[Rfam]
The record is a 109-nucleotide sequence from Sphingomonas aracearum, which matches "TPP riboswitch aptamer (THI element)" in Rfam. Rfam links the family to the GO term thiamine pyrophosphate binding. The base pairs follow the family's consensus structure, which is taken from published work. About the family: Vitamin B(1) in its active form thiamin pyrophosphate (TPP) is an essential coenzyme that is synthesised by coupling of pyrimidine and thiazole moieties in bacteria. The previously detected thiamin-regulatory element, thi box was extended, resulting in a new, highly conserved RNA secondary structure, the THI element, which is widely distributed in eubacteria and also occurs in some archaea. Analysis of operon structures identified a large number of new candidate thiamin-regulated genes, mostly transporters, in various prokaryotic organisms. The THI element is a riboswitch that directly binds to TPP to regulate gene expression through a variety of mechanisms in archaea, bacteria and eukaryotes. through a variety of mechanisms in archaea, bacteria and eukaryotes. Tandem TPP riboswitches have been reported where both TPP riboswitches respond independently to TPP. The structure of TPP riboswitch has been reported for Escherichia coli and Arabidopsis thaliana. It scores 61 bits against the family's covariance model.
RNA sequence: ACCGAUCCCCGGGGGAGCGCUUCGUCGCGCUUGAGAGGAGGGCCGCAGCCCUCGACCCGCUGAACCUGAUCCGGCUGACACCGGCGUAGGGAGGGAGCGGUCGCCAUCU
Numbered sequence: 001a002c003c004g005a006u007c008c009c010c011g012g013g014g015g016a017g018c019g020c021u022u023c024g025u026c027g028c029g030c031u032u033g034a035g036a037g038g039a040g041g042g043c044c045g046c047a048g049c050c051c052u053c054g055a056c057c058c059g060c061u062g063a064a065c066c067u068g069a070u071c072c073g074g075c076u077g078a079c080a081c082c083g084g085c086g087u088a089g090g091g092a093g094g095g096a097g098c099g100g101u102c103g104c105c106a107u108c109u
Stems, first nucleotide, its partner, number of pairs: 006096004010059004015053001016031005039052004065090004071084004
Dot-bracket structure: .....((((((((.((((((......))))).......((((......)))))..)))).....((((..((((......))))..))))..)))).............